[Rfam]
Annotation
A member of the RNA family "L31-Actinobacteria ribosomal protein leader" from Nocardia brevicatena, 46 nucleotides long. By type it is a cis-regulatory leader. For this family Rfam cites "Discovery of 20 novel ribosomal leader candidates in bacteria and archaea" (Eckert and Weinberg, BMC Microbiol, 2020).
RNA sequence: CCGGUUCCGGUUCACGCCCGACGCUUGCGCGGGCGACCCGGCGACC
Numbered sequence: 001c002c003g004g005u006u007c008c009g010g011u012u013c014a015c016g017c018c019c020g021a022c023g024c025u026u027g028c029g030c031g032g033g034c035g036a037c038c039c040g041g042c043g044a045c046c
Base pairs, nucleotide, nucleotide: 003046004045005044007041008040009039010038015035016034017033018032019031020030022029023028
It is one of the family's seed sequences. The family is grouped with related families in Rfam's "Ribosomal Protein L31 Leader clan".